[Rfam]
RNA sequence: AUUUCUACAAAUCAGAAUGAUCUGAAAUUUGGAGCGUGUGUUCGUCAAAAAUAAGAGAAUCUGAUAAAAAUAUAAAAAAAUAAUAAUUCAUAAAAUAUAAAUUGACCAAAAUACCCCUGAAAAUUUACGGGGGCAUUUUGGUCUAUUAAUAUUUUGUGAAAUAUUUUUUUCAUAUUUUUAUUAGGUGCGUCUCACUAAGAUGUACACACACUCCAAAUUUUAGAUCAUUCCGAUUUAUAGAAAA
Numbered sequence: 001a002u003u004u005c006u007a008c009a010a011a012u013c014a015g016a017a018u019g020a021u022c023u024g025a026a027a028u029u030u031g032g033a034g035c036g037u038g039u040g041u042u043c044g045u046c047a048a049a050a051a052u053a054a055g056a057g058a059a060u061c062u063g064a065u066a067a068a069a070a071u072a073u074a075a076a077a078a079a080a081u082a083a084u085a086a087u088u089c090a091u092a093a094a095a096u097a098u099a100a101a102u103u104g105a106c107c108a109a110a111a112u113a114c115c116c117c118u119g120a121a122a123a124u125u126u127a128c129g130g131g132g133g134c135a136u137u138u139u140g141g142u143c144u145a146u147u148a149a150u151a152u153u154u155u156g157u158g159a160a161a162u163a164u165u166u167u168u169u170u171c172a173u174a175u176u177u178u179u180a181u182u183a184g185g186u187g188c189g190u191c192u193c194a195c196u197a198a199g200a201u202g203u204a205c206a207c208a209c210a211c212u213c214c215a216a217a218u219u220u221u222a223g224a225u226c227a228u229u230c231c232g233a234u235u236u237a238u239a240g241a242a243a244a
Base pairs, nucleotide, nucleotide: 002243003242004241005240006239007238009236010235011234012233013232015230016229017228018227019226020225021224022223023222024221025220026219027218028217029216030215031214032213033212034211036209037208038207039206040205041204043202044201045200061184062183063182064181066179067178068177069176070175071174072173073172075170076169077168078167079166080165098149100147101146102145104143105142106141107140108139109138110137111136112135114133115132116131118127119126120125
This 244-nucleotide RNA from Amborella trichopoda belongs to the Rfam family "MIR8562 microRNA precursor family". It scores 215 bits against the family's covariance model. Lineage of the source: Eukaryota > Tracheophyta > Spermatophyta > Magnoliopsida > Amborella.